This 191-nucleotide RNA from Anopheles stephensi belongs to the Rfam family "drz-agam-2-2 ribozyme". NCBI's taxonomy places the organism under Eukaryota, Pancrustacea, Altocrustacea, Dicondylia, Neocellia. The family's consensus secondary structure is taken from published work. On this family, see Webb et al., Science 2009: "Widespread occurrence of self-cleaving ribozymes". It scores 159 bits against the family's covariance model.

RNA sequence: UACAGCCUAUGAAUCCGUAACGUAUGAAUCCGAAGCCUCUUGAAUGUUAACAUAGGCUCUCCAUACCUCACUUCGACUCAAUGCGUCCCCGGCGUACAGAACGGUAACAUGUCUGUCCAAAUAUCUGAGCUUCGGUAUACGAGGAAGCCCAACCCCUUGGGAAGGUGGUUGAUAUGGCUAAAUUGAGCGGA
Numbered sequence: 001u002a003c004a005g006c007c008u009a010u011g012a013a014u015c016c017g018u019a020a021c022g023u024a025u026g027a028a029u030c031c032g033a034a035g036c037c038u039c040u041u042g043a044a045u046g047u048u049a050a051c052a053u054a055g056g057c058u059c060u061c062c063a064u065a066c067c068u069c070a071c072u073u074c075g076a077c078u079c080a081a082u083g084c085g086u087c088c089c090c091g092g093c094g095u096a097c098a099g100a101a102c103g104g105u106a107a108c109a110u111g112u113c114u115g116u117c118c119a120a121a122u123a124u125c126u127g128a129g130c131u132u133c134g135g136u137a138u139a140c141g142a143g144g145a146a147g148c149c150c151a152a153c154c155c156c157u158u159g160g161g162a163a164g165g166u167g168g169u170u171g172a173u174a175u176g177g178c179u180a181a182a183u184u185g186a187g188c189g190g191a
Base pairs, nucleotide, nucleotide: 011102014099022067023065024064025063026062028060030056031055072191073190074189075188077187078186079185080184081183082182083095084094085093087104088103108176109175110174111173112172113171115169117168118167123166124165125164126163131152132151134149135148136147154161155160